[Rfam]
RNA sequence: ACACGGGAAAGGAGGUGGUCCAACGUUGAAUAUCAACAGGACUCGUGAGGUGGCUGUCCGCUAGGACCGCCAACGGCCUUCACAACGUCGGCCCCGUGGUGCACCGCGGGAUAAGCGUCCGGCGAAUUCCAGGCAGCUACCCGACCCCCGGAGCUCCGAGCCACAGUCCAGGCUCGGCCUGCGCAGCAGGAAGAAGCCCGGGGGUCGCUGCUG
Number, nucleotide and partner (000 for none) at each position: 001a000002c000003a000004c000005g000006g000007g000008a000009a000010a000011g000012g000013a000014g058015g057016u056017g055018g054019u053020c000021c000022a000023a000024c000025g000026u000027u000028g000029a000030a000031u000032a000033u000034c000035a000036a000037c000038a000039g000040g000041a000042c000043u000044c000045g000046u000047g000048a000049g000050g000051u000052g000053g019054c018055u017056g016057u015058c014059c124060g123061c122062u121063a000064g119065g118066a000067c000068c117069g116070c115071c000072a000073a000074c000075g000076g000077c000078c000079u000080u000081c000082a000083c000084a000085a000086c000087g000088u000089c000090g000091g000092c000093c000094c000095c000096g000097u000098g000099g000100u000101g000102c000103a000104c000105c000106g000107c000108g000109g000110g000111a000112u000113a000114a000115g070116c069117g068118u065119c064120c000121g062122g061123c060124g059125a000126a000127u000128u000129c000130c000131a000132g000133g000134c000135a000136g000137c000138u000139a000140c000141c000142c207143g206144a205145c204146c203147c202148c201149c200150g199151g198152a000153g197154c196155u195156c000157c176158g175159a174160g173161c172162c171163a000164c000165a000166g000167u000168c000169c000170a000171g162172g161173c160174u159175c158176g157177g000178c000179c000180u000181g000182c000183g000184c000185a000186g000187c000188a000189g000190g000191a000192a000193g000194a000195a155196g154197c153198c151199c150200g149201g148202g147203g146204g145205u144206c143207g142208c000209u000210g000211c000212u000213g000